[Rfam]
RNA sequence: AUCAGGCCGGCUCGACCGGCCAGGCUGGCGCGCCCGUCCGAUGCGGCGCGAAUCCGGUCCGGCGUCCGUCGAUAACCUGACGCCACG
Numbered sequence: 001a002u003c004a005g006g007c008c009g010g011c012u013c014g015a016c017c018g019g020c021c022a023g024g025c026u027g028g029c030g031c032g033c034c035c036g037u038c039c040g041a042u043g044c045g046g047c048g049c050g051a052a053u054c055c056g057g058u059c060c061g062g063c064g065u066c067c068g069u070c071g072a073u074a075a076c077c078u079g080a081c082g083c084c085a086c087g
Base pairs, nucleotide, nucleotide: 005021006020007019008018009017010016023059024058025057026056027055028054029050030049031048032047033046034045061084062083063082064081065080066079
This 87-nucleotide RNA from Brevundimonas sp. Root1423 belongs to the Rfam family "nhaA-II RNA". The family's RNA type in Rfam is cis-regulatory element. The source organism's lineage runs through Bacteria, Alphaproteobacteria, Caulobacterales, Caulobacteraceae and Brevundimonas. The family's consensus secondary structure is taken from published work.